[Rfam]
RNA sequence: CUGCCGGUGGGAGUCCGGUCCGGGUAGCUGCCAGGAGGCCCGGUAGUGGACUGGCGGUGUCGGGGGGAAGCGCCCGGGGCCGAAGCCCAGUGUCGAAAGCCCUGUUUCGGGGCGGGGGCGGGGAGUGCCGAGCCCCCGAAAUCA
Numbered sequence: 001c002u003g004c005c006g007g008u009g010g011g012a013g014u015c016c017g018g019u020c021c022g023g024g025u026a027g028c029u030g031c032c033a034g035g036a037g038g039c040c041c042g043g044u045a046g047u048g049g050a051c052u053g054g055c056g057g058u059g060u061c062g063g064g065g066g067g068a069a070g071c072g073c074c075c076g077g078g079g080c081c082g083a084a085g086c087c088c089a090g091u092g093u094c095g096a097a098a099g100c101c102c103u104g105u106u107u108c109g110g111g112g113c114g115g116g117g118g119c120g121g122g123g124a125g126u127g128c129c130g131a132g133c134c135c136c137c138g139a140a141a142u143c144a
Stems, first nucleotide, its partner, number of pairs: 020043005050091005055082004060077001064073001066071001099119005121137003
This 144-nucleotide RNA sequence from Streptomyces malaysiensis belongs to the Rfam family "Group II catalytic intron D1-D4-4". About the family: Group II introns are found in rRNA, tRNA and mRNA of organelles in fungi, plants and protists, and also in mRNA in bacteria.